[Rfam]
RNA sequence: CGCUCAUCCAGAGGGGCAGAGGGACACGGCCCGACGAAGCCCCGGCAACCCCGUGCGUACGACCGCGACCUCCGCGGCCCCGGCGCGCGAAAGGUGCCAACUCCGUCCCGCGGACCAUCCGGCGGGAAAGAUGAGGA
Number, nucleotide and partner (000 for none) at each position: 001c000002g000003c135004u134005c133006a132007u131008c130009c000010a000011g000012a000013g043014g042015g041016g040017c039018a000019g000020a000021g032022g031023g030024a000025c000026a106027c105028g104029g103030c023031c022032c021033g000034a000035c000036g000037a000038a000039g017040c016041c015042c014043c013044g098045g097046c096047a095048a000049c094050c093051c000052c089053g088054u087055g086056c085057g084058u083059a000060c000061g000062a000063c000064c000065g000066c000067g000068a000069c000070c000071u000072c000073c000074g000075c000076g000077g000078c000079c000080c000081c000082g000083g058084c057085g056086c055087g054088c053089g052090a000091a000092a000093g050094g049095u047096g046097c045098c044099a000100a000101c000102u129103c029104c028105g027106u026107c126108c125109c124110g123111c122112g000113g000114a000115c000116c000117a000118u000119c000120c000121g000122g111123c110124g109125g108126g107127a000128a000129a102130g008131a007132u006133g005134a004135g003136g000137a000